This 72-nucleotide RNA from Caldinitratiruptor microaerophilus belongs to the Rfam family "tRNA". Lineage of the source: Bacteria > Bacillati > Clostridia > Eubacteriales > Caldinitratiruptor.
RNA sequence: GGGGUCGUAGCUCAGAGGGAGAGCGCCGCCCUUGCAAGGCGGAGGUCGUGGGUUCGAAUCCCAUCGGCUCCA
Numbered sequence: 001g002g003g004g005u006c007g008u009a010g011c012u013c014a015g016a017g018g019g020a021g022a023g024c025g026c027c028g029c030c031c032u033u034g035c036a037a038g039g040c041g042g043a044g045g046u047c048g049u050g051g052g053u054u055c056g057a058a059u060c061c062c063a064u065c066g067g068c069u070c071c072a
Stems, first nucleotide, its partner, number of pairs: 001071007010024004026042005048064005